[Rfam]
The record is a 76-nucleotide RNA from Buchnera aphidicola, which matches "tpke11" in Rfam. On this family, see Hershberg et al., Nucleic Acids Res 2003: "A survey of small RNA-encoding genes in Escherichia coli". About the family: In Yersinia located in ICR upstream dnaJ (chaperone)gene. Has temperature responsive RNA structure. The sequence is in the family's curated seed alignment. By type it is a small RNA.
RNA sequence: AUUAGAGUAUUUAAACCAGCACGGGCGUAGAAAAAAUCUACGCCCGUGUACUUAUUUUGAAAGCAGGAAGAAUAGC
Numbered sequence: 001a002u003u004a005g006a007g008u009a010u011u012u013a014a015a016c017c018a019g020c021a022c023g024g025g026c027g028u029a030g031a032a033a034a035a036a037u038c039u040a041c042g043c044c045c046g047u048g049u050a051c052u053u054a055u056u057u058u059g060a061a062a063g064c065a066g067g068a069a070g071a072a073u074a075g076c
Stems, first nucleotide, its partner, number of pairs: 003018001005016001019049009029039003